[Rfam]
RNA: mir-9242 microRNA precursor family
Organism: Cnephaeus nilssonii
RNA sequence: GGCCUCCCUCUGUGGGGCAAUCAAUGGCGGGGGACCCCAGAUCGAUUGCCCCGCAGAGGGAGGCC
Dot-bracket structure: ((((((((((((((((((((((.((...(((....)))..)).))))))))))))))))))))))